[Rfam]
Shown here is an 85-nucleotide RNA from Ceratodon purpureus, a member of the family "Small nucleolar RNA snoR8a". The organism belongs to Ceratodon, within Eukaryota. On this family, see Brown et al., RNA 2001: "Multiple snoRNA gene clusters from Arabidopsis". It scores 72 bits against the family's covariance model. The family's RNA type in Rfam is C/D-box small nucleolar RNA. Pairs were carried over by alignment from the consensus structure, which was predicted with WAR. Gene Ontology terms of the family: RNA processing and nucleolus.
RNA sequence: UUUGAUGUGCUGUGAUUUUAACAAUUCCUCGUACUGAGUGCCGAAGGCAUGACAGACUACUUUACACCCAUAGAAUAUGAGCACG
Dot-bracket structure: ..((.((..........................................................................))))